[Rfam]
RNA sequence: UUCACAGAAUGAUGGCAUCUUCCUAAACCCUUCUGGGGGAUGUCUGAGACGUUGUGAA
Numbered sequence: 001u002u003c004a005c006a007g008a009a010u011g012a013u014g015g016c017a018u019c020u021u022c023c024u025a026a027a028c029c030c031u032u033c034u035g036g037g038g039g040a041u042g043u044c045u046g047a048g049a050c051g052u053u054g055u056g057a058a
Stems, first nucleotide, its partner, number of pairs: 001058005014044010